[Rfam]
RNA sequence: UCAGACCACUUUAUCAGUAGCUUAGUUUUUCAAUAUGAGGCAUAAUGCCCUACAACGUAGCGGUGUCGCAUGAUUACUAAGCAAUUCACAAUUAUUUCUUAUCAAUCGUGCGACACUUUAAUCGCUAUCCCAUAAUUUAAUUAGGGAAUGGGACUCUUCACCGAGGUUGUAAAAUGAGACAAACGAUUUUAGCUGUAU
Numbered sequence: 001u002c003a004g005a006c007c008a009c010u011u012u013a014u015c016a017g018u019a020g021c022u023u024a025g026u027u028u029u030u031c032a033a034u035a036u037g038a039g040g041c042a043u044a045a046u047g048c049c050c051u052a053c054a055a056c057g058u059a060g061c062g063g064u065g066u067c068g069c070a071u072g073a074u075u076a077c078u079a080a081g082c083a084a085u086u087c088a089c090a091a092u093u094a095u096u097u098c099u100u101a102u103c104a105a106u107c108g109u110g111c112g113a114c115a116c117u118u119u120a121a122u123c124g125c126u127a128u129c130c131c132a133u134a135a136u137u138u139a140a141u142u143a144g145g146g147a148a149u150g151g152g153a154c155u156c157u158u159c160a161c162c163g164a165g166g167u168u169g170u171a172a173a174a175u176g177a178g179a180c181a182a183a184c185g186a187u188u189u190u191a192g193c194u195g196u197a198u
Stems, first nucleotide, its partner, number of pairs: 017196006025184004030179002039049004051171006058127005063116005069110003073106003078101004128153006136147003154165003
Shown here is a 198-nucleotide RNA sequence from Acinetobacter sp. CIP 102637, a member of the family "Acinetobacter sRNA 11". A search with the family's covariance model found it, with a score of 171 bits. It is annotated as a small RNA.